RNA sequence: AUCUUUGCGCAUGGGCAGUAUCGCGACCAAUGAGGCCUAGCCGAGGUGUGAUUAUUGCUGGUUGAAAACUUUCACCAAUUGCCCGCCUUGGUGUGCUGAAAUAUGCACGCCUUGGCAAUUUUUGGAAACCCGCAAGGGU
Dot-bracket structure: ...................(((((.(((.....(((...)))..))))))))................................(((..(((((((........)))))))..)))...........((((....))))
About this RNA: This 139-nucleotide RNA sequence from Ditylenchus dipsaci belongs to the Rfam family "U4 spliceosomal RNA". It scores 119 bits against the family's covariance model. Rfam describes the family as follows. U4 small nuclear RNA (U4 snRNA) is a component of the major U2-dependent spliceosome. Gene Ontology terms of the family: spliceosomal tri-snRNP complex assembly and U4 snRNP. The base pairs follow the family's consensus structure, which is taken from published work. The family is grouped with related families in Rfam's "U4 clan". The organism belongs to Ditylenchus, within Eukaryota.